[Rfam]
RNA sequence: GUGGCGGGAAGAGACUGUCGUGCAAGGCUACACGCGGAGCACCAAUUGCUCACUCUUCGCCUUGGGGAAAUUCCUCGGACCGUACGGUAGAAACUGCCGUGAUAUCAAGCUCAAUUUCACUGCCCCGACCGACGGGUGCCUCGCGAGGCGGGACCCGCUUGCGGGGAAUCUCAUGGCACUCGGGCGCGGGUGCAUUGGUCAAAGCACAGGUUUGAUGGCAGUGUUACAAACAAAACGGGGGCUACUCCUUCUCGUCA
Dot-bracket structure: .((((((((((...(((((...((((((........(((((.....))))).......))))))....[.[.[[[[.........((((.....))))((((.(..........).)))).((......(......((((....((((......((.......))...))))..)))).....).......))....................)))))..((...)).........]]]]].]....))))))))))
Shown here is a 257-nucleotide sequence from Nesidiocoris tenuis, a member of the family "RNase MRP". It is annotated as a ribozyme. Clan: RNaseP clan. The family's consensus secondary structure is taken from published work. Taxonomically the source falls in Nesidiocoris (Eukaryota, Protostomia, Panarthropoda, Panheteroptera).